RNA: mir-105 microRNA precursor family
Organism: Heterocephalus glaber
RNA sequence: UGUGCGCCGUGGUCAAAUGCUCAGACUCCUGUGGUGGCUGCUCAUGCACCAUGAAUUUUUGAGUAUGUGCUAUGGUGUCUA
Numbered sequence: 001u002g003u004g005c006g007c008c009g010u011g012g013u014c015a016a017a018u019g020c021u022c023a024g025a026c027u028c029c030u031g032u033g034g035u036g037g038c039u040g041c042u043c044a045u046g047c048a049c050c051a052u053g054a055a056u057u058u059u060u061g062a063g064u065a066u067g068u069g070c071u072a073u074g075g076u077g078u079c080u081a
Stems, first nucleotide, its partner, number of pairs: 004078009014069002017066009027055001029053001034052004039048003
Dot-bracket structure: ...(((((((((.((.(((((((((.(.(....((((.(((....)))))))).)..))))))))).)))))))))))...